A member of the RNA family "mir-194 microRNA precursor family" from Podarcis muralis, 82 nucleotides long.
The family has 46 seed sequences and 936 matches in Rfam 15.1.
It scores 69 bits against the family's covariance model.
The family's consensus secondary structure was predicted with RNAalifold.
The source organism's lineage runs through Eukaryota, Vertebrata, Gnathostomata, Dipnotetrapodomorpha and Podarcis.
RNA sequence: GGGUGCCUAUCGGCUGUAACAGCAACUCCACGUGGAAGCCUCAAACCAUUCCAGUGGGGGGGCUGUUAUUUUGGAUGGGCAC
Numbered sequence: 001g002g003g004u005g006c007c008u009a010u011c012g013g014c015u016g017u018a019a020c021a022g023c024a025a026c027u028c029c030a031c032g033u034g035g036a037a038g039c040c041u042c043a044a045a046c047c048a049u050u051c052c053a054g055u056g057g058g059g060g061g062g063c064u065g066u067u068a069u070u071u072u073g074g075a076u077g078g079g080c081a082c
Stems, first nucleotide, its partner, number of pairs: 010075002016069008026059006033053003